[Rfam]
RNA: FMN riboswitch aptamer (RFN element)
Organism: Alkaliphilus pronyensis
RNA sequence: AAUAUUCUUCAGGGCAGGGUGAAAUUCCCGACCGGCGGUAAAAAUCCGCGAGUCGAUUGAAUCGAUUGAACUGGUGAAAUUCCAGUAUCGACAGUAAAGUCUGGAUGGGAGAAGAAAUCA
Numbered sequence: 001a002a003u004a005u006u007c008u009u010c011a012g013g014g015c016a017g018g019g020u021g022a023a024a025u026u027c028c029c030g031a032c033c034g035g036c037g038g039u040a041a042a043a044a045u046c047c048g049c050g051a052g053u054c055g056a057u058u059g060a061a062u063c064g065a066u067u068g069a070a071c072u073g074g075u076g077a078a079a080u081u082c083c084a085g086u087a088u089c090g091a092c093a094g095u096a097a098a099g100u101c102u103g104g105a106u107g108g109g110a111g112a113a114g115a116a117a118u119c120a
Base pairs, nucleotide, nucleotide: 005116006115007114008113009112010111017029018028019027031100032099033090034089035049036048037047038046044088045087052066053065054064070086071085072084073083074082092103093102094101